MIR8788 microRNA precursor family: a 132-nucleotide RNA from Phytophthora fragariaefolia. Rfam links the family to the GO terms RISC complex and miRNA-mediated post-transcriptional gene silencing. Lineage of the source: Eukaryota > Oomycota > Peronosporomycetes > Peronosporales > Phytophthora. The match comes from Rfam's covariance-model search (132 bits).
[Rfam]
RNA sequence: GCGAGAGUUCGCGUAGCCUACCAAGCGUACCAAUACCGUAAUUCAGCACACGAGCGCACAAGGGCGCUCCCCUGUGUGCUCGUUUGCCGAGAUGCAGUAUUGGUGCGCUUGGUACGCCCCGCGCACUCUUGC
Number, nucleotide and partner (000 for none) at each position: 001g132002c131003g130004a129005g128006a127007g126008u125009u000010c123011g122012c121013g120014u000015a000016g117017c116018c000019u114020a113021c112022c111023a110024a109025g108026c107027g106028u000029a104030c103031c102032a101033a100034u099035a098036c097037c000038g095039u094040a093041a000042u091043u090044c089045a000046g087047c086048a085049c000050a083051c082052g081053a080054g079055c078056g077057c076058a075059c074060a073061a000062g069063g068064g000065c000066g000067c000068u063069c062070c000071c000072c000073u060074g059075u058076g057077u056078g055079c054080u053081c052082g051083u050084u000085u048086g047087c046088c000089g044090a043091g042092a000093u040094g039095c038096a000097g036098u035099a034100u033101u032102g031103g030104u029105g000106c027107g026108c025109u024110u023111g022112g021113u020114a019115c000116g017117c016118c000119c000120c013121g012122c011123g010124c000125a008126c007127u006128c005129u004130u003131g002132c001